RNase E 5' UTR element: a 336-nucleotide RNA sequence from Lonsdalea quercina. It scores 255 bits against the family's covariance model. Lineage of the source: Bacteria > Pseudomonadota > Gammaproteobacteria > Pectobacteriaceae > Lonsdalea. Rfam describes the family as follows. This family represents a conserved element found in the 5' UTR of RNase E mRNA. RNase E is a key regulatory enzyme in the pathway of mRNA degradation in E. coli that is able to auto-regulate the degradation of its own mRNA in response to changes in RNase E activity. This rne 5' UTR element acts as a sensor of cellular RNase E concentration enabling tight regulation of RNase E concentration and synthesis. Its family is annotated with regulation of gene expression in the Gene Ontology. The literature on the family includes a 2000 paper in Genes Dev by Diwa et al., "An evolutionarily conserved RNA stem-loop functions as a sensor that directs feedback regulation of RNase E gene expression".
[Rfam]
RNA sequence: CUUUCCGCGCUGUUUACCUGAAAAACAAGGGAAAUUGCGGAAUUAUUAUAUUUGCCUGAUGACUCACAACGCAGCAAUGGCGUAAGACGUAGCGAAUUAUCAAGCAGUUAGCGAGCUGCGGUUAGCAGUUUGGCCGGCAAAUGGAAUCAGAUCUGGCACCUAUUUUCAGAAGCUGUUCCCGCCAUAAAUGCGCUGUUUUCCAUCAGGAAAUACAGGCUACCGAAACAUGCGUCUCUAUGCAGACGACAACCGGGAGGUUGACGCCCCUGCGAUAAGCCACGAGGCCAUCGGUUCAUUCCGGUCAUACCCCGCUUUCACCGGCAGCUCUAUCCAUAA
Numbered sequence: 001c002u003u004u005c006c007g008c009g010c011u012g013u014u015u016a017c018c019u020g021a022a023a024a025a026c027a028a029g030g031g032a033a034a035u036u037g038c039g040g041a042a043u044u045a046u047u048a049u050a051u052u053u054g055c056c057u058g059a060u061g062a063c064u065c066a067c068a069a070c071g072c073a074g075c076a077a078u079g080g081c082g083u084a085a086g087a088c089g090u091a092g093c094g095a096a097u098u099a100u101c102a103a104g105c106a107g108u109u110a111g112c113g114a115g116c117u118g119c120g121g122u123u124a125g126c127a128g129u130u131u132g133g134c135c136g137g138c139a140a141a142u143g144g145a146a147u148c149a150g151a152u153c154u155g156g157c158a159c160c161u162a163u164u165u166u167c168a169g170a171a172g173c174u175g176u177u178c179c180c181g182c183c184a185u186a187a188a189u190g191c192g193c194u195g196u197u198u199u200c201c202a203u204c205a206g207g208a209a210a211u212a213c214a215g216g217c218u219a220c221c222g223a224a225a226c227a228u229g230c231g232u233c234u235c236u237a238u239g240c241a242g243a244c245g246a247c248a249a250c251c252g253g254g255a256g257g258u259u260g261a262c263g264c265c266c267c268u269g270c271g272a273u274a275a276g277c278c279a280c281g282a283g284g285c286c287a288u289c290g291g292u293u294c295a296u297u298c299c300g301g302u303c304a305u306a307c308c309c310c311g312c313u314u315u316c317a318c319c320g321g322c323a324g325c326u327c328u329a330u331c332c333a334u335a336a
Base pairs, nucleotide, nucleotide: 003042004041005040006039007038008037015032017030018029019028052107053106054105055104057102058101059100064095065094069090070089071088074081075080113327114326115325116324117323118322119321120319121318122317131304132303133302134301135300136299137298143179144178145177146176147175152170153169154168155167156166190217191216193215194214195213196212197210198209199208200207219292220291221290222289223288231285232284233283234282235281244263245262247260248259249258250257251256